[Rfam]
RNA sequence: AGGAGUCGGUUGUGUUAACCUGGUUGGACUAGAGUCUCUGAGCAUUUCUCUGAGGAUCUUAGAAACCACCUGAUCCACACUUU
Numbered sequence: 001a002g003g004a005g006u007c008g009g010u011u012g013u014g015u016u017a018a019c020c021u022g023g024u025u026g027g028a029c030u031a032g033a034g035u036c037u038c039u040g041a042g043c044a045u046u047u048c049u050c051u052g053a054g055g056a057u058c059u060u061a062g063a064a065a066c067c068a069c070c071u072g073a074u075c076c077a078c079a080c081u082u083u
Stems, first nucleotide, its partner, number of pairs: 003082004008076002018074001020072001022070003026066001031059003035055004040050003
RNA: Small nucleolar RNA ZL8
Organism: Molossus molossus